[Rfam]
RNA sequence: UUCUGAGAAUAGCAAACCCGGUGCAAUCCGGGGACGCAAAACCACGGGCCCUUCUGGGGUAGCCAGGUUGCCGGA
Numbered sequence: 001u002u003c004u005g006a007g008a009a010u011a012g013c014a015a016a017c018c019c020g021g022u023g024c025a026a027u028c029c030g031g032g033g034a035c036g037c038a039a040a041a042c043c044a045c046g047g048g049c050c051c052u053u054c055u056g057g058g059g060u061a062g063c064c065a066g067g068u069u070g071c072c073g074g075a
Stems, first nucleotide, its partner, number of pairs: 012037002017032005040069004046064002048060004

Record summary
A member of the RNA family "c-di-GMP-I riboswitch aptamer" from Desulfuromusa kysingii, 75 nucleotides long. The family's consensus secondary structure is taken from published work. The source organism's lineage runs through Bacteria, Pseudomonadati, Thermodesulfobacteriota, Geopsychrobacteraceae and Desulfuromusa. The match comes from Rfam's covariance-model search (59 bits).